MIR1520 microRNA precursor family: a 103-nucleotide RNA sequence from Glycine max. Rfam links the family to the GO terms miRNA-mediated post-transcriptional gene silencing and RISC complex. The base pairs follow the family's consensus structure, which was predicted with RNAalifold. The sequence is in the family's curated seed alignment. The family has 18 seed sequences and 1,934 matches in Rfam 15.1.
[Rfam]
RNA sequence: UUCUUAUUGAAUGAUGACUAUUACGUGUCAUGUUCUGAUCGACCAAUGACAACAACAAUAAUUCGACAUCCAAUCAGAACAUGACACGUGACAGUCAUCAUUU
Numbered sequence: 001u002u003c004u005u006a007u008u009g010a011a012u013g014a015u016g017a018c019u020a021u022u023a024c025g026u027g028u029c030a031u032g033u034u035c036u037g038a039u040c041g042a043c044c045a046a047u048g049a050c051a052a053c054a055a056c057a058a059u060a061a062u063u064c065g066a067c068a069u070c071c072a073a074u075c076a077g078a079a080c081a082u083g084a085c086a087c088g089u090g091a092c093a094g095u096c097a098u099c100a101u102u103u
Stems, first nucleotide, its partner, number of pairs: 021091003025087002029083003033079004038074002